[Rfam]
Nucleotides: 088
Base pairs, nucleotide, nucleotide: 001088002087003086004085005084006083007082008081009080012027013026014025017022029045030044031043032042033041048061049060050059051057065079066078067077068076
Number, partner (000 for none) and nucleotide at each position: 001088g002087g003086a004085c005084g006083a007082g008081g009080u010000u011000g012027g013026c014025c015000g016000a017022g018000u019000g020000g021000u022017u023000a024000a025014g026013g027012c028000u029045a030044u031043g032042g033041a034000c035000u036000g037000c038000u039000a040000a041033u042032c043031c044030a045029u046000u047000u048061g049060g050059g051057c052000a053000c054000a055000u056000g057051g058000c059050c060049c061048c062000g063000c064000g065079u066078g067077g068076g069000u070000u071000c072000g073000a074000a075000u076068c077067c078066c079065a080009g081008c082007c083006u084005c085004g086003u087002c088001c

A member of the RNA family "Selenocysteine transfer RNA" from Argiope bruennichi, 88 nucleotides long. The family's consensus secondary structure is taken from published work.